[Rfam]
RNA sequence: CAUGGAUUUGUUGUGUAUUCCAUCUCUUGCACACUGGACAGGGGCGUCAUAGGGCCUUGACGCUUCAGGUUGGUGUGCAGGGGAUGGAAUACAUCAUCGAUUCAUG
Numbered sequence: 001c002a003u004g005g006a007u008u009u010g011u012u013g014u015g016u017a018u019u020c021c022a023u024c025u026c027u028u029g030c031a032c033a034c035u036g037g038a039c040a041g042g043g044g045c046g047u048c049a050u051a052g053g054g055c056c057u058u059g060a061c062g063c064u065u066c067a068g069g070u071u072g073g074u075g076u077g078c079a080g081g082g083g084a085u086g087g088a089a090u091a092c093a094u095c096a097u098c099g100a101u102u103c104a105u106g
Stems, first nucleotide, its partner, number of pairs: 001106008010097002013094025039068001
Shown here is a 106-nucleotide sequence from Protea cynaroides, a member of the family "MIR2950 microRNA precursor family". Lineage of the source: Eukaryota > Viridiplantae > Proteales > Proteaceae > Protea.